RNA: SAM riboswitch aptamer (S box leader)
RNA sequence: UUCUUAUCAAGAGAGAUGGAGGGAACGGCCCUGUGAAAUCUCGGCAACCUACAAAUGUUGUAAGGUGCUAAUUCCGUCAAAGAUUACUUUGAAAGAUGAGGA
Number, nucleotide and partner (000 for none) at each position: 001u102002u101003c100004u099005u098006a097007u096008c095009a000010a000011g000012a000013g042014a041015g040016a039017u038018g000019g000020a000021g031022g030023g029024a000025a077026c076027g075028g074029c023030c022031c021032u000033g000034u000035g000036a000037a000038a017039u016040c015041u014042c013043g069044g068045c067046a066047a000048c065049c064050u062051a061052c060053a059054a000055a000056u000057g000058u000059u053060g052061u051062a050063a000064g049065g048066u046067g045068c044069u043070a000071a000072u000073u094074c028075c027076g026077u025078c091079a090080a089081a088082g087083a000084u000085u000086a000087c082088u081089u080090u079091g078092a000093a000094a073095g008096a007097u006098g005099a004100g003101g002102a001